[Rfam]
RNA sequence: CGAGUUGGCUGGGCGGCCGCGGAAGACCGACCGGUCCUGCAGAGGGGGAGGAGGGACGGCCGGAUCUUUCGAGGAAAGUCCGGACUUCACAGAGCAGGGUGAUUGCUAACGGCAAUCCGAGGUGACUCGCGGGACAGUGCCACAGAAAACAGACCGCCAGUACUGGUAAGGGUGAAACGGUGCGGUAAGAGCGCACCAGCAUCCCGGGUGACCGGGAUGGCUAGGCAAACCCCACCCGAAGCAAGGCCAAGAAGAUCGCGUGGGGGCGCGAUCGCGCAGACGUUCGAGGGUUGCUCGCCCGAGUCUGCGGGUAGGCCGCUCGAGGUACCCGGCGACGGUGUGCCCAGAUGGAUGGUCGCCACUGAACCCUCACGGGUUCAGGACAGAAUCCGGCUUACAGGCCAGCUCGUUCG
Number, nucleotide and partner (000 for none) at each position: 001c409002g408003a407004g406005u405006u404007g403008g402009c401010u400011g398012g360013g359014c358015g357016g356017c355018c354019g000020c071021g070022g069023a068024a067025g066026a065027c000028c063029g000030a000031c000032c000033g000034g000035u000036c000037c000038u000039g000040c000041a000042g000043a000044g000045g000046g000047g000048g000049a000050g000051g000052a000053g000054g000055g000056a000057c000058g000059g000060c000061c000062g000063g028064a000065u026066c025067u024068u023069u022070c021071g020072a000073g000074g000075a000076a396077a395078g394079u000080c393081c392082g391083g390084a389085c241086u240087u239088c238089a000090c000091a000092g296093a295094g294095c293096a000097g237098g236099g235100u234101g233102a116103u115104u114105g113106c112107u000108a000109a000110c000111g000112g106113c105114a104115a103116u102117c131118c129119g128120a127121g126122g000123u000124g000125a000126c121127u120128c119129g118130c000131g117132g232133g231134a000135c000136a000137g230138u229139g226140c225141c224142a000143c000144a000145g000146a000147a000148a000149a000150c000151a000152g000153a000154c171155c170156g167157c166158c165159a164160g000161u000162a000163c000164u159165g158166g157167u156168a000169a000170g155171g154172g000173u000174g000175a000176a000177a000178c000179g197180g196181u195182g194183c193184g192185g000186u000187a000188a000189g000190a000191g000192c184193g183194c182195a181196c180197c179198a000199g221200c219201a218202u217203c216204c215205c214206g213207g212208g000209u000210g000211a000212c207213c206214g205215g204216g203217a202218u201219g200220g000221c199222u000223a000224g141225g140226c139227a000228a000229a138230c137231c133232c132233c101234a100235c099236c098237c097238g088239a087240a086241g085242c000243a000244a000245g317246g316247c315248c314249a000250a000251g000252a000253a000254g000255a000256u000257c000258g000259c000260g000261u000262g000263g000264g000265g000266g000267c000268g000269c000270g000271a000272u000273c000274g000275c000276g308277c307278a306279g305280a304281c303282g000283u000284u000285c000286g000287a000288g300289g299290g298291u297292u000293g095294c094295u093296c092297g291298c290299c289300c288301g000302a000303g281304u280305c279306u278307g277308c276309g000310g000311g000312u000313a000314g248315g247316c246317c245318g000319c000320u000321c000322g000323a000324g343325g000326u000327a000328c000329c338330c337331g336332g000333c000334g000335a000336c331337g330338g329339u000340g000341u000342g000343c324344c000345c000346a000347g000348a000349u000350g000351g000352a000353u000354g018355g017356u016357c015358g014359c013360c012361a000362c000363u000364g000365a000366a000367c000368c000369c000370u000371c000372a000373c000374g000375g000376g000377u000378u000379c000380a000381g000382g000383a000384c000385a000386g000387a000388a000389u084390c083391c082392g081393g080394c078395u077396u076397a000398c011399a000400g010401g009402c008403c007404a006405g005406c004407u003408c002409g001410u000411u000412c000413g000
Rfam assigns this 413-nucleotide sequence from Mycolicibacterium tokaiense to the family "Bacterial RNase P class A". Rfam links the family to the GO terms tRNA processing, ribonuclease P activity and dimeric ribonuclease P complex. Ribonuclease P (RNase P) is a ubiquitous endoribonuclease, found in archaea, bacteria and eukarya as well as chloroplasts and mitochondria. The source organism's lineage runs through Bacteria, Bacillati, Actinomycetes, Mycobacteriales and Mycobacterium (subgen. Mycolicibacterium). It scores 290 bits against the family's covariance model.